[Rfam]
RNA sequence: AUUAUUUAAGGAUAGUAAGGCAGCUACCACGCCAGAGAUGGUCUUAAAAGAGAUGUGGGGAACGCCGUCCCACUAAAUAAU
Number, nucleotide and partner (000 for none) at each position: 001a081002u080003u079004a078005u077006u076007u075008a074009a000010g000011g028012a000013u026014a025015g024016u000017a000018a000019g066020g065021c064022a000023g000024c015025u014026a013027c000028c011029a000030c050031g042032c041033c040034a039035g000036a000037g000038a000039u034040g033041g032042u031043c000044u000045u000046a000047a000048a000049a000050g030051a000052g000053a000054u000055g073056u072057g071058g070059g069060g000061a000062a000063c000064g021065c020066c019067g000068u000069c059070c058071c057072a056073c055074u008075a007076a006077a005078u004079a003080a002081u001
Description
The family of this 81-nucleotide RNA sequence is "skipping-rope RNA". The base pairs follow the family's consensus structure, which is taken from published work. The sequence is in the family's curated seed alignment.